[Rfam]
RNA sequence: AAGGUUGCCUAUGCAACAGCCAUGGAUUGGUUUAUUGCCGUCUGCUACGCAUUU
Numbered sequence: 001a002a003g004g005u006u007g008c009c010u011a012u013g014c015a016a017c018a019g020c021c022a023u024g025g026a027u028u029g030g031u032u033u034a035u036u037g038c039c040g041u042c043u044g045c046u047a048c049g050c051a052u053u054u
Stems, first nucleotide, its partner, number of pairs: 001054003006051003010047002013045002016041002019038002022035005
Background
The family of this 54-nucleotide sequence from Chiloscyllium punctatum is "Editing element of GABA-3 exon 9". Taxonomically the source falls in Chiloscyllium (Eukaryota, Opisthokonta, Deuterostomia, Orectolobiformes). The base pairs follow the family's consensus structure, which is taken from published work. On this family, see Ohlson et al., RNA 2007: "Editing modifies the GABA(A) receptor subunit alpha3". Rfam classes the family as a cis-regulatory element.